This 357-nucleotide RNA sequence from Halorhodospira halophila belongs to the Rfam family "Bacterial RNase P class A". Ribonuclease P (RNase P) is a ubiquitous endoribonuclease, found in archaea, bacteria and eukarya as well as chloroplasts and mitochondria. It is annotated as a ribozyme. The organism belongs to Halorhodospira halophila, within Bacteria. Rfam's curators put it in the seed alignment.
RNA sequence: UGAGUCGGCCGGAUGGCCGCUGUGUCGCAAGGCGACACGGAGGAAAGUCCGGGCUCCACAGGGCAGGGUGCCAGGUAACGCCUGGGGGGCGUGAGCCCACGGAAAGUGCCACAGAAAACAGACCGCCGAUGGCCGCCGCUAGGCGGCACAGGUAAGGGUGAAAAGGUGCGGUAAGAGCGCACCGCGCGACCGGCAACGGUUCGCGGCACGGUAAACCCCACCCGGAGCAAGGCCAAAUAGGGGAGCGAUGGCGUGGCCCGCGCCGCUCCCGGGUAGGCCGCUAGAGGCGUGCGGAGACGCACGUCCCAGAGGAAUGGCCAUCCUCGACAGAACCCGGCUUACAGGCCGACUCACCCU
Dot-bracket structure: ((((((((((((((((((.(((((((((...)))))))))....[[[.[[[[[((((...[[[[.((((((((((.....)))))(((((....)))).)((...(((((............(((((....((((((....))))))...)))..)).......((((((.......))))))(((((((((....))).))))).)..)))..)))))))))))))...((((......((((((...(((((.]]]]))))))))))).....))))......((((((((....))))))))..........)))))))..........]]]]]]]].).))))))))))....
Numbered sequence: 001u002g003a004g005u006c007g008g009c010c011g012g013a014u015g016g017c018c019g020c021u022g023u024g025u026c027g028c029a030a031g032g033c034g035a036c037a038c039g040g041a042g043g044a045a046a047g048u049c050c051g052g053g054c055u056c057c058a059c060a061g062g063g064c065a066g067g068g069u070g071c072c073a074g075g076u077a078a079c080g081c082c083u084g085g086g087g088g089g090c091g092u093g094a095g096c097c098c099a100c101g102g103a104a105a106g107u108g109c110c111a112c113a114g115a116a117a118a119c120a121g122a123c124c125g126c127c128g129a130u131g132g133c134c135g136c137c138g139c140u141a142g143g144c145g146g147c148a149c150a151g152g153u154a155a156g157g158g159u160g161a162a163a164a165g166g167u168g169c170g171g172u173a174a175g176a177g178c179g180c181a182c183c184g185c186g187c188g189a190c191c192g193g194c195a196a197c198g199g200u201u202c203g204c205g206g207c208a209c210g211g212u213a214a215a216c217c218c219c220a221c222c223c224g225g226a227g228c229a230a231g232g233c234c235a236a237a238u239a240g241g242g243g244a245g246c247g248a249u250g251g252c253g254u255g256g257c258c259c260g261c262g263c264c265g266c267u268c269c270c271g272g273g274u275a276g277g278c279c280g281c282u283a284g285a286g287g288c289g290u291g292c293g294g295a296g297a298c299g300c301a302c303g304u305c306c307c308a309g310a311g312g313a314a315u316g317g318c319c320a321u322c323c324u325c326g327a328c329a330g331a332a333c334c335c336g337g338c339u340u341a342c343a344g345g346c347c348g349a350c351u352c353a354c355c356c357u
Stems, first nucleotide, its partner, number of pairs: 001353010011342001012322007020040009045340003049337005054227004061259004066223005071085005086100001087098004101218002106216002108212003123157002125153003132147006165183006184207001185205005190199003231279004241270006250264005286305008